[Rfam]
RNA sequence: CUGGGGCACAGAGUUGCAGUUGAUUGAAACUAAAUCAUGUGCGCUAAGUUGUCCCGAAAUCAUCGUUUCGGAUUAUAAGAAGGCAGUGUUACUCCUCUAGGACACUGUUGAUAUGAUAUUCGUACAAUU
Numbered sequence: 001c002u003g004g005g006g007c008a009c010a011g012a013g014u015u016g017c018a019g020u021u022g023a024u025u026g027a028a029a030c031u032a033a034a035u036c037a038u039g040u041g042c043g044c045u046a047a048g049u050u051g052u053c054c055c056g057a058a059a060u061c062a063u064c065g066u067u068u069c070g071g072a073u074u075a076u077a078a079g080a081a082g083g084c085a086g087u088g089u090u091a092c093u094c095c096u097c098u099a100g101g102a103c104a105c106u107g108u109u110g111a112u113a114u115g116a117u118a119u120u121c122g123u124a125c126a127a128u129u
Base pairs, nucleotide, nucleotide: 003055004054005053006052007051008050009048012045013044014043016042017041018040021037022036023035024034025033069122070121071120072119073118076115077114079112084107085106086105087104088103089102090101

A member of the RNA family "Caenorhabditis snoRNA ceN45" from Caenorhabditis brenneri, 129 nucleotides long. The family's RNA type in Rfam is H/ACA-box small nucleolar RNA.